[Rfam]
RNA sequence: ACUCAACACUAUUUAUUUAGAAAGGAUGAGUCUUGGUUGGUAAAGCAUGCCGAUUUAUCUCGGAUCCUUGAUAAACCAGUUAGUCCUAAACCUGUUUUCUGGAGUUU
Numbered sequence: 001a002c003u004c005a006a007c008a009c010u011a012u013u014u015a016u017u018u019a020g021a022a023a024g025g026a027u028g029a030g031u032c033u034u035g036g037u038u039g040g041u042a043a044a045g046c047a048u049g050c051c052g053a054u055u056u057a058u059c060u061c062g063g064a065u066c067c068u069u070g071a072u073a074a075a076c077c078a079g080u081u082a083g084u085c086c087u088a089a090a091c092c093u094g095u096u097u098u099c100u101g102g103a104g105u106u107u
Base pairs, nucleotide, nucleotide: 023087024086025085026084027083034078035077036076037075038074043069044068045067050063051062052061053060